Shown here is a 172-nucleotide sequence from Phenylobacterium glaciei, a member of the family "FMN riboswitch aptamer (RFN element)".
[Rfam]
RNA sequence: ACGCGUUCUCAGGGCGGGGUGAAAGUCCCCACCGGCGGUAAUGCCGACCGACCUCGCAAGGGGAAACGUCGGACGAGCCCGCGGGCGCCUGUGGGGCCUUAGGCCACGCAGGGACAGCAGACACCGGUGUGAUCCCGGGGCCGACGGUUAGAGUCCGGUUAUGAGAACCACU
Numbered sequence: 001a002c003g004c005g006u007u008c009u010c011a012g013g014g015c016g017g018g019g020u021g022a023a024a025g026u027c028c029c030c031a032c033c034g035g036c037g038g039u040a041a042u043g044c045c046g047a048c049c050g051a052c053c054u055c056g057c058a059a060g061g062g063g064a065a066a067c068g069u070c071g072g073a074c075g076a077g078c079c080c081g082c083g084g085g086c087g088c089c090u091g092u093g094g095g096g097c098c099u100u101a102g103g104c105c106a107c108g109c110a111g112g113g114a115c116a117g118c119a120g121a122c123a124c125c126g127g128u129g130u131g132a133u134c135c136c137g138g139g140g141c142c143g144a145c146g147g148u149u150a151g152a153g154u155c156c157g158g159u160u161a162u163g164a165g166a167a168c169c170a171c172u
Stems, first nucleotide, its partner, number of pairs: 005168006017029003031154002033143002035082004085118002122139001124138004145157003
Pairs were carried over by alignment from the consensus structure, which is taken from published work.